Shown here is a 48-nucleotide RNA from Aporhodopirellula sallentina, a member of the family "Guanidine-II riboswitch aptamer (mini-ykkC)".
[Rfam]
RNA sequence: AAGUGAGGACGACCUCACCGCUCCACGAUCCAUUCAGGGACGACCCUG
Numbered sequence: 001a002a003g004u005g006a007g008g009a010c011g012a013c014c015u016c017a018c019c020g021c022u023c024c025a026c027g028a029u030c031c032a033u034u035c036a037g038g039g040a041c042g043a044c045c046c047u048g
Base pairs, nucleotide, nucleotide: 003018004017005016006015007014008013035048036047037046038045039044